[Rfam]
RNA sequence: CGUGUUGAUAGAGGUGCGAGAUUCAUUAGUACAGACUUGGAGAAGUAUGAGCUUCCGUGAAAAGUCUGGAAAGGGAAAAUCGCCGAAGCAGUUGGGUGCUCAUCCACUCAAAGUGCUGGUCUGUACAUUUAAGAGAUGGCAGAUUGUCAGAAUGAAAAAUUCUGGAGAGCUAUCUCACUG
Numbered sequence: 001c002g003u004g005u006u007g008a009u010a011g012a013g014g015u016g017c018g019a020g021a022u023u024c025a026u027u028a029g030u031a032c033a034g035a036c037u038u039g040g041a042g043a044a045g046u047a048u049g050a051g052c053u054u055c056c057g058u059g060a061a062a063a064g065u066c067u068g069g070a071a072a073g074g075g076a077a078a079a080u081c082g083c084c085g086a087a088g089c090a091g092u093u094g095g096g097u098g099c100u101c102a103u104c105c106a107c108u109c110a111a112a113g114u115g116c117u118g119g120u121c122u123g124u125a126c127a128u129u130u131a132a133g134a135g136a137u138g139g140c141a142g143a144u145u146g147u148c149a150g151a152a153u154g155a156a157a158a159a160u161u162c163u164g165g166a167g168a169g170c171u172a173u174c175u176c177a178c179u180g
Base pairs, nucleotide, nucleotide: 007174008173009172010171011170016083017082018081019080022077023076024075032068033067034066035065036064037063038062087117088116089115090114092111093110094109095108096107097106098105118145119144120143121142122141123140124139126138127137128136129135147165148164149163150162151161152160153159
A member of the RNA family "Lysine riboswitch aptamer" from Peribacillus psychrosaccharolyticus, 180 nucleotides long. Pairs were carried over by alignment from the consensus structure, which is taken from published work. A search with the family's covariance model found it, with a score of 116 bits.